[Rfam]
RNA: RAGATH-18 RNA
RNA sequence: ACUAUGGAGAGUACAAUAACUUAUGAGUAAAUACAUUUUGUAUUGAAAAUAUACUCGUUGAAGUAGUAA
Numbered sequence: 001a002c003u004a005u006g007g008a009g010a011g012u013a014c015a016a017u018a019a020c021u022u023a024u025g026a027g028u029a030a031a032u033a034c035a036u037u038u039u040g041u042a043u044u045g046a047a048a049a050u051a052u053a054c055u056c057g058u059u060g061a062a063g064u065a066g067u068a069a
Stems, first nucleotide, its partner, number of pairs: 001067005009056005022051003030044005